Rfam assigns this 76-nucleotide sequence from Lingula anatina to the family "mir-133 microRNA precursor family". Pairs were carried over by alignment from the consensus structure, which was predicted with PFOLD.
[Rfam]
RNA sequence: AUUCUGUAGCUGGUUGAAGUCGGGCCAAAUAGUCUGUGUUGUCAUGCAUUUGGUCCCCUUCAACCAGCUGUAGUGA
Numbered sequence: 001a002u003u004c005u006g007u008a009g010c011u012g013g014u015u016g017a018a019g020u021c022g023g024g025c026c027a028a029a030u031a032g033u034c035u036g037u038g039u040u041g042u043c044a045u046g047c048a049u050u051u052g053g054u055c056c057c058c059u060u061c062a063a064c065c066a067g068c069u070g071u072a073g074u075g076a
Stems, first nucleotide, its partner, number of pairs: 004073003008069011022055002025053006

For this family Rfam cites "Identification of tissue-specific microRNAs from mouse" (Lagos-Quintana et al., Curr Biol, 2002). Rfam describes the family as follows. mir-133 was first experimentally characterised in mouse and homologues have since been discovered in several other species. The mature sequence is excised from the 3' arm of the hairpin. The organism belongs to Lingula, within Eukaryota.